The family of this 82-nucleotide RNA sequence from Astyanax mexicanus is "Mammalian CPEB3 ribozyme". The match comes from Rfam's covariance-model search (50 bits).

RNA sequence: AUAGAAGAUGGGGGGGUCAAGGUAGAAGAGUUUACGUCGCGAUUCCUGUCAAGCGAUAGCAAUAUCACUUGCGAAUUCUACC
Numbered sequence: 001a002u003a004g005a006a007g008a009u010g011g012g013g014g015g016g017u018c019a020a021g022g023u024a025g026a027a028g029a030g031u032u033u034a035c036g037u038c039g040c041g042a043u044u045c046c047u048g049u050c051a052a053g054c055g056a057u058a059g060c061a062a063u064a065u066c067a068c069u070u071g072c073g074a075a076u077u078c079u080a081c082c
Stems, first nucleotide, its partner, number of pairs: 013046006021082007028040001030038001050071004055066004